[Rfam]
RNA: mir-1199 microRNA precursor family
Organism: Otolemur garnettii
RNA sequence: UGCGGCGGAGCCGGGGCCUGAGCCCGGGCCGCGCGGGCCGCGAAUUCGUGGAGUUGCGUGUGCGGCCAGUGCUCAGUCUGCCCGGCCCUGGCCCCGCGCC
Numbered sequence: 001u002g003c004g005g006c007g008g009a010g011c012c013g014g015g016g017c018c019u020g021a022g023c024c025c026g027g028g029c030c031g032c033g034c035g036g037g038c039c040g041c042g043a044a045u046u047c048g049u050g051g052a053g054u055u056g057c058g059u060g061u062g063c064g065g066c067c068a069g070u071g072c073u074c075a076g077u078c079u080g081c082c083c084g085g086c087c088c089u090g091g092c093c094c095c096g097c098g099c100c
Stems, first nucleotide, its partner, number of pairs: 002099003007095002010092009019075005024069001027067008037057002040054001045053003